[Rfam]
The family of this 98-nucleotide RNA sequence is "RAGATH-18 RNA". It is one of the family's seed sequences.
RNA sequence: CCUGUGGAUCGUUACAUAAACGAAAGUAGUUUUAAAUGAAGAUAUUUAAAUCCCAAAUAUUGACAUUUUUAACAAAAUCGAACGGGAUGAAGCAGGAA
Dot-bracket structure: (((((...(((((.......(((.....(((..(((((.........................)))))..)))....))))))))......)))))..